[Rfam]
RNA: mraW RNA
RNA sequence: CGUAUACUGCCACCCGAAGUCCCCAGCCGGAAGUCCCCGGAGUUGGGGACUGGCUUCAGUAGAUUCUACUGAAGCCAGUCCCCAACUCCGGGGACUUCCGGCUGGGGACUUCGGGUGGCAGUAUACGCCGU
Number, nucleotide and partner (000 for none) at each position: 001c000002g000003u000004a000005u000006a000007c000008u000009g000010c118011c117012a116013c115014c114015c113016g112017a000018a110019g109020u000021c107022c106023c105024c104025a103026g102027c101028c100029g099030g098031a097032a096033g095034u094035c000036c000037c091038c090039g089040g088041a087042g086043u085044u084045g083046g082047g081048g080049a079050c078051u077052g076053g075054c074055u073056u072057c071058a070059g069060u068061a067062g066063a000064u000065u000066c062067u061068a060069c059070u058071g057072a056073a055074g054075c053076c052077a051078g050079u049080c048081c047082c046083c045084a044085a043086c042087u041088c040089c039090g038091g037092g000093g000094a034095c033096u032097u031098c030099c029100g028101g027102c026103u025104g024105g023106g022107g021108a000109c019110u018111u000112c016113g015114g014115g013116u012117g011118g010119c000120a000121g000122u000123a000124u000125a000126c000127g000128c000129c000130g000131u000